The record is a 62-nucleotide sequence from Desulfovibrio piger, which matches "Fluoride riboswitch aptamer (crcB RNA motif)" in Rfam. The base pairs follow the family's consensus structure, which is taken from published work.

[Rfam]
RNA sequence: GAAGGUCAAGGGGAUGGAGUCCCCCAUGAACCGCAUGUUUUGCUGAUGACUCCUGCCGGACC
Numbered sequence: 001g002a003a004g005g006u007c008a009a010g011g012g013g014a015u016g017g018a019g020u021c022c023c024c025c026a027u028g029a030a031c032c033g034c035a036u037g038u039u040u041u042g043c044u045g046a047u048g049a050c051u052c053c054u055g056c057c058g059g060a061c062c
Stems, first nucleotide, its partner, number of pairs: 010025004016053006033043003